[Rfam]
RNA sequence: GGGGACGUUACGGAUUCGACAGGGGUAGUUUGAGCUCAAGUUGCGUGCCGAGGUUACGACUCGUAAACCGUUACCCGCCAAUAAUAACUGGCAAAGAAAACAAUUUCUCUUUAGCAGCUGCCUAAGCAGCACUAAAGGAUCCUUCCUAUCAUCGCCCGUGUGCUAGAUGAAGGGUCUCAAAUGAAGCGGGAUACGCUAAACAUUCACCGUCUGCGGAUGUUUAGAGGAGAUUAAUCAGACUAGCUGCUAGGAAGCCUGUUGAUAGGCUGAAUGGCAAGCGAAAUGCGAAUAUAUCAACUACGCAUGUAGACGCUUGAGUGGCAAUAUCUCUGGACGUGGGUUCGACUCCCACCGUCUCCACCA
Numbered sequence: 001g002g003g004g005a006c007g008u009u010a011c012g013g014a015u016u017c018g019a020c021a022g023g024g025g026u027a028g029u030u031u032g033a034g035c036u037c038a039a040g041u042u043g044c045g046u047g048c049c050g051a052g053g054u055u056a057c058g059a060c061u062c063g064u065a066a067a068c069c070g071u072u073a074c075c076c077g078c079c080a081a082u083a084a085u086a087a088c089u090g091g092c093a094a095a096g097a098a099a100a101c102a103a104u105u106u107c108u109c110u111u112u113a114g115c116a117g118c119u120g121c122c123u124a125a126g127c128a129g130c131a132c133u134a135a136a137g138g139a140u141c142c143u144u145c146c147u148a149u150c151a152u153c154g155c156c157c158g159u160g161u162g163c164u165a166g167a168u169g170a171a172g173g174g175u176c177u178c179a180a181a182u183g184a185a186g187c188g189g190g191a192u193a194c195g196c197u198a199a200a201c202a203u204u205c206a207c208c209g210u211c212u213g214c215g216g217a218u219g220u221u222u223a224g225a226g227g228a229g230a231u232u233a234a235u236c237a238g239a240c241u242a243g244c245u246g247c248u249a250g251g252a253a254g255c256c257u258g259u260u261g262a263u264a265g266g267c268u269g270a271a272u273g274g275c276a277a278g279c280g281a282a283a284u285g286c287g288a289a290u291a292u293a294u295c296a297a298c299u300a301c302g303c304a305u306g307u308a309g310a311c312g313c314u315u316g317a318g319u320g321g322c323a324a325u326a327u328c329u330c331u332g333g334a335c336g337u338g339g340g341u342u343c344g345a346c347u348c349c350c351a352c353c354g355u356c357u358c359c360a361c362c363a
Base pairs, nucleotide, nucleotide: 001359002358003357004356005355006354007353020332021331022330023329024328025327026326027325029323034319035318036317037316038315039314040313041312044306045305046304047303048302049063050062051061052060054073056071057070058069110136111135112134113133114132117130118129138176139175140174141173142172143171146166147165148164150162151161152160155190156189157188158187159186196224197223198222199221200220201219202218203217204216209241212238243279244278245276246275247274248273249272254267255266256265258298259297260296261295262292263291264290336352337351338350339349340348